[Rfam]
RNA sequence: GUAAAACCGAAAACGAAGAAUAGUAGAUGAAUUUGUAAAUGUAAAGAGAAUGGUGCAAAGGGUGUGAGUACCUACAUUUAUUUUCAUUGAAUGGACUUCUGAGGGCGGGAAGAAAUUCGAAAGAAAAGUAAUGCCUGACGGAACCUUACCGUUAUAUUAGGACCAAUAUGAUAGUAUUGGAUGAGAGAGUGCUAAAUGCAAAUUUGGGUGGUACCGCAGAAGUUAUGACUUUUGUCCCAUGG
Numbered sequence: 001g002u003a004a005a006a007c008c009g010a011a012a013a014c015g016a017a018g019a020a021u022a023g024u025a026g027a028u029g030a031a032u033u034u035g036u037a038a039a040u041g042u043a044a045a046g047a048g049a050a051u052g053g054u055g056c057a058a059a060g061g062g063u064g065u066g067a068g069u070a071c072c073u074a075c076a077u078u079u080a081u082u083u084u085c086a087u088u089g090a091a092u093g094g095a096c097u098u099c100u101g102a103g104g105g106c107g108g109g110a111a112g113a114a115a116u117u118c119g120a121a122a123g124a125a126a127a128g129u130a131a132u133g134c135c136u137g138a139c140g141g142a143a144c145c146u147u148a149c150c151g152u153u154a155u156a157u158u159a160g161g162a163c164c165a166a167u168a169u170g171a172u173a174g175u176a177u178u179g180g181a182u183g184a185g186a187g188a189g190u191g192c193u194a195a196a197u198g199c200a201a202a203u204u205u206g207g208g209u210g211g212u213a214c215c216g217c218a219g220a221a222g223u224u225a226u227g228a229c230u231u232u233u234g235u236c237c238c239a240u241g242g
Stems, first nucleotide, its partner, number of pairs: 007104002015099004026088006039077003052072005106137004111132001139151003190200003205239004216235007
This 242-nucleotide sequence from Peptoniphilus sp. ING2-D1G belongs to the Rfam family "T-box leader". From the family's description: Uncharged tRNA acts as the effector for transcription antitermination of genes in the T-box leader family. T-boxes are found upstream of many aminoacyl-tRNA synthetase genes and some amino acid biosynthetic genes usually in Gram-positive bacteria. The anticodon of a specific tRNA base pairs to a specifier sequence within the T-box motif, and the NCCA acceptor tail of the tRNA base pairs to a conserved bulge in the T-box antiterminator hairpin. Taxonomically the source falls in Peptoniphilus (Bacteria, Bacillati, Bacillota, Tissierellales). For this family Rfam cites "Interaction between the acceptor end of tRNA and the T box stimulates antitermination in the Bacillus subtilis tyrS gene: a new role for the discriminator base" (Grundy et al., J Bacteriol, 1994).